[Rfam]
RNA: Vault RNA
RNA sequence: GCGCUGGUUUAGCUCAGUGGUUACUUCUCAUCAACACUGUUCAUGUCCGCGGGUAACCGGCGGCCGGAAAUUUGAACCACGGGCUCUGUCCAGCGUUUUA
Numbered sequence: 001g002c003g004c005u006g007g008u009u010u011a012g013c014u015c016a017g018u019g020g021u022u023a024c025u026u027c028u029c030a031u032c033a034a035c036a037c038u039g040u041u042c043a044u045g046u047c048c049g050c051g052g053g054u055a056a057c058c059g060g061c062g063g064c065c066g067g068a069a070a071u072u073u074g075a076a077c078c079a080c081g082g083g084c085u086c087u088g089u090c091c092a093g094c095g096u097u098u099u100a
Base pairs, nucleotide, nucleotide: 002095003094004093005092006091007090012084013083014082015081017080018079019078020077025069026068027067028066